[Rfam]
Nucleotides: 055
Stems, first nucleotide, its partner, number of pairs: 005051006015040001018042002021038006
Number, partner (000 for none) and nucleotide at each position: 001000c002000c003000a004000c005051g006050g007049a008048g009047u010046a011000g012000a013000a014000g015040c016000g017000g018042u019041c020000u021038g022037c023036a024035a025034u026033a027000c028000u029000u030000u031000g032000c033026u034025a035024u036023u037022g038021c039000u040015g041019g042018a043000c044000a045000u046010u047009g048008c049007u050006c051005c052000a053000a054000u055000a
The family of this 55-nucleotide RNA sequence from Vibrio xiamenensis is "Xanthine riboswitch aptamer (NMT1 RNA)". Lineage of the source: Bacteria > Pseudomonadati > Gammaproteobacteria > Vibrionaceae > Vibrio. Rfam links the family to the GO term purine nucleobase binding.